[Rfam]
RNA sequence: AUGCUCGAUGAUGCUGAAAACUUUCGUUCUACCGAGAAGUCAAAAGACUGUGUGGAUGAAAAAUGUGUUUGGAGACCUGAACUGAGAGCAU
Numbered sequence: 001a002u003g004c005u006c007g008a009u010g011a012u013g014c015u016g017a018a019a020a021c022u023u024u025c026g027u028u029c030u031a032c033c034g035a036g037a038a039g040u041c042a043a044a045a046g047a048c049u050g051u052g053u054g055g056a057u058g059a060a061a062a063a064u065g066u067g068u069u070u071g072g073a074g075a076c077c078u079g080a081a082c083u084g085a086g087a088g089c090a091u
Base pairs, nucleotide, nucleotide: 003089004088005087006086

About this RNA
Rfam assigns this 91-nucleotide RNA sequence from Nannochloris sp. 'desiccata' to the family "Small nucleolar RNA Z159/U59". It is annotated as a C/D-box small nucleolar RNA. The family is grouped with related families in Rfam's "SNORD59 clan". The base pairs follow the family's consensus structure, which was predicted with PFOLD. NCBI's taxonomy places the organism under Eukaryota, Chlorophyta, core chlorophytes, Chlorellaceae, Nannochloris.